[Rfam]
Rfam assigns this 80-nucleotide sequence from Oncorhynchus kisutch to the family "Small nucleolar RNA SNORD11B". A reference for the family is Yang et al. (2006), "snoSeeker: an advanced computational package for screening of guide and orphan snoRNA genes in the human genome", Nucleic Acids Res. It scores 52 bits against the family's covariance model. Rfam classes the family as a C/D-box small nucleolar RNA. Pairs were carried over by alignment from the consensus structure, which was predicted with WAR.

RNA sequence: AACAAGCGGUGAUUAAUAUGACUAUAUGUCACAAUCCUGAUACCUGAUGCUUUUCAGUCACUACCUCAUCUGAGCUUGAA
Numbered sequence: 001a002a003c004a005a006g007c008g009g010u011g012a013u014u015a016a017u018a019u020g021a022c023u024a025u026a027u028g029u030c031a032c033a034a035u036c037c038u039g040a041u042a043c044c045u046g047a048u049g050c051u052u053u054u055c056a057g058u059c060a061c062u063a064c065c066u067c068a069u070c071u072g073a074g075c076u077u078g079a080a
Stems, first nucleotide, its partner, number of pairs: 003078005